This 152-nucleotide sequence from Roseovarius pacificus belongs to the Rfam family "FMN riboswitch aptamer (RFN element)".
RNA sequence: CACUGUUCUCAGGGCGGGGCGGAAUUCCCCACCGGCGGUAUGGGGCCAAUCGCGCCCCGAGCCCGCGAGCGCUCCGGCCCCAUGGCCGGGGGUCAGCAGAUCUGGUGAGACUCCAGGGCCGACGGUCAUAGUCCGGAUGGAAGAGAACGCCG
Numbered sequence: 001c002a003c004u005g006u007u008c009u010c011a012g013g014g015c016g017g018g019g020c021g022g023a024a025u026u027c028c029c030c031a032c033c034g035g036c037g038g039u040a041u042g043g044g045g046c047c048a049a050u051c052g053c054g055c056c057c058c059g060a061g062c063c064c065g066c067g068a069g070c071g072c073u074c075c076g077g078c079c080c081c082a083u084g085g086c087c088g089g090g091g092g093u094c095a096g097c098a099g100a101u102c103u104g105g106u107g108a109g110a111c112u113c114c115a116g117g118g119c120c121g122a123c124g125g126u127c128a129u130a131g132u133c134c135g136g137a138u139g140g141a142a143g144a145g146a147a148c149g150c151c152g
Stems, first nucleotide, its partner, number of pairs: 004149007017029003031132002033121002035066004061119002069097002101117005123135003
A search with the family's covariance model found it, with a score of 103 bits. Gene Ontology term of the family: FMN binding.